[Rfam]
RNA sequence: AACCUCUUUCUGCAAACGCCUUGGAUUUUCUUUUGGCUUCAUGUUGUUCAUUAGAAUAAUAGCCUUUUCAUCUUAUUUAAAGAACAUCCAAGGUGUUUGUAGAAAAAGGUU
Numbered sequence: 001a002a003c004c005u006c007u008u009u010c011u012g013c014a015a016a017c018g019c020c021u022u023g024g025a026u027u028u029u030c031u032u033u034u035g036g037c038u039u040c041a042u043g044u045u046g047u048u049c050a051u052u053a054g055a056a057u058a059a060u061a062g063c064c065u066u067u068u069c070a071u072c073u074u075a076u077u078u079a080a081a082g083a084a085c086a087u088c089c090a091a092g093g094u095g096u097u098u099g100u101a102g103a104a105a106a107a108g109g110u111u
Stems, first nucleotide, its partner, number of pairs: 001111005007105005013099005019093008028084006041071003050060004
RNA: MIR2934 microRNA precursor family
Organism: Arabidopsis thaliana